This 214-nucleotide sequence from Parvularcula maris belongs to the Rfam family "permuted transfer-messenger RNA". Pairs were carried over by alignment from the consensus structure, which is taken from published work. NCBI's taxonomy places the organism under Bacteria, Pseudomonadati, Parvularculales, Parvularculaceae, Parvularcula. It scores 133 bits against the family's covariance model.

[Rfam]
RNA sequence: GACGAUAAAUGGCGUUCGUAAUAAGCGGACUGGACCCGGGGGCGGUACCCGGCGGCUCCACCAGAGGCCCUGCGGAAGCGGGGGUUCCGGCGGGGCCGACAUAGCAUCGACAGACGUGUAAAGGCUCUGCUUUCGUUCGGAUGGUCUCCGUCAUUGGACCGUUUUGAUAGUUGCAAACGACAACUACGAUGAAGGUUUCGCUCUCGCUGCGUAG
Numbered sequence: 001g002a003c004g005a006u007a008a009a010u011g012g013c014g015u016u017c018g019u020a021a022u023a024a025g026c027g028g029a030c031u032g033g034a035c036c037c038g039g040g041g042g043c044g045g046u047a048c049c050c051g052g053c054g055g056c057u058c059c060a061c062c063a064g065a066g067g068c069c070c071u072g073c074g075g076a077a078g079c080g081g082g083g084g085u086u087c088c089g090g091c092g093g094g095g096c097c098g099a100c101a102u103a104g105c106a107u108c109g110a111c112a113g114a115c116g117u118g119u120a121a122a123g124g125c126u127c128u129g130c131u132u133u134c135g136u137u138c139g140g141a142u143g144g145u146c147u148c149c150g151u152c153a154u155u156g157g158a159c160c161g162u163u164u165u166g167a168u169a170g171u172u173g174c175a176a177a178c179g180a181c182a183a184c185u186a187c188g189a190u191g192a193a194g195g196u197u198u199c200g201c202u203c204u205c206g207c208u209g210c211g212u213a214g
Base pairs, nucleotide, nucleotide: 001137002136003135004134005133014127017124026116027115030113031112032111036052037051038050039049040048053098054097055096056095057094058093059092138150139149140148141147